[Rfam]
RNA: mir-981 microRNA precursor family
Organism: Dreissena polymorpha
RNA sequence: AGCUAUUUUGCCGGGUUUCACGAUAAAUGAGCAGUGACAUUUACUUUGUUCGUUGUCGUCGAAACCUGCCUUGAAUAGCG
Numbered sequence: 001a002g003c004u005a006u007u008u009u010g011c012c013g014g015g016u017u018u019c020a021c022g023a024u025a026a027a028u029g030a031g032c033a034g035u036g037a038c039a040u041u042u043a044c045u046u047u048g049u050u051c052g053u054u055g056u057c058g059u060c061g062a063a064a065c066c067u068g069c070c071u072u073g074a075a076u077a078g079c080g
Base pairs, nucleotide, nucleotide: 002079003078004077005076006075012068013067014066015065016064017063018062019061029051030050031049032048033047